[Rfam]
RNA sequence: ACGGCCACCUCGGGGUGCUGGAUGGGGCAAAACCUUCCUGCUGAGAUGCGCAUGCGAACCCGUCGAACCUGAACCGGUUAACACCGGCGGAGGAAAGGUAGGGACUAUGCAA
Numbered sequence: 001a002c003g004g005c006c007a008c009c010u011c012g013g014g015g016u017g018c019u020g021g022a023u024g025g026g027g028c029a030a031a032a033c034c035u036u037c038c039u040g041c042u043g044a045g046a047u048g049c050g051c052a053u054g055c056g057a058a059c060c061c062g063u064c065g066a067a068c069c070u071g072a073a074c075c076g077g078u079u080a081a082c083a084c085c086g087g088c089g090g091a092g093g094a095a096a097g098g099u100a101g102g103g104a105c106u107a108u109g110c111a112a
Base pairs, nucleotide, nucleotide: 007099008098009097010096011062012061013060014059016056017041018040020038021037048055049054068093069092070091074087075086076085077084